[Rfam]
This 168-nucleotide RNA from Marinococcus luteus belongs to the Rfam family "M-box riboswitch aptamer (ykoK leader)". Rfam describes the family as follows. M-box riboswitch, also know as ykoK leader is described as a metaloregulatory RNA that sense divalent metals and function as a genetic control element of genes related to divalent metal transport in bacteria. It was first reported upstream of the B.subtilis ykoK gene and genes with related functions in other bacteria. The family has 159 seed sequences and 1,095 matches in Rfam 15.1. Rfam links the family to the GO terms response to magnesium ion and regulation of gene expression. Pairs were carried over by alignment from the consensus structure.
RNA sequence: UUAUAAUCUCGUUAGGUGAGGCUCCUGUGUAGAUAUAAGCUUCUGCCCAAAAAUGUCUAAAGACGCCAAUGGGUCAACAGAAUCCAUCGAAUUAAGGUGUUUUCUAAUGAAGCUGGAUAAUACAUUCCUACGCUAUGCAGUGCUAAAGCUCGACGAAAGGGAACAGAA
Numbered sequence: 001u002u003a004u005a006a007u008c009u010c011g012u013u014a015g016g017u018g019a020g021g022c023u024c025c026u027g028u029g030u031a032g033a034u035a036u037a038a039g040c041u042u043c044u045g046c047c048c049a050a051a052a053a054u055g056u057c058u059a060a061a062g063a064c065g066c067c068a069a070u071g072g073g074u075c076a077a078c079a080g081a082a083u084c085c086a087u088c089g090a091a092u093u094a095a096g097g098u099g100u101u102u103u104c105u106a107a108u109g110a111a112g113c114u115g116g117a118u119a120a121u122a123c124a125u126u127c128c129u130a131c132g133c134u135a136u137g138c139a140g141u142g143c144u145a146a147a148g149c150u151c152g153a154c155g156a157a158a159g160g161g162a163a164c165a166g167a168a
Base pairs, nucleotide, nucleotide: 007162008161009160010159011154012153013095015150016149017148020144021143022142025140026139027138028137029136030135031134032133039113040112041111042110043109045074046073047072048071049070054065055064056063057062080104081103082102086098087097088096115128116127117126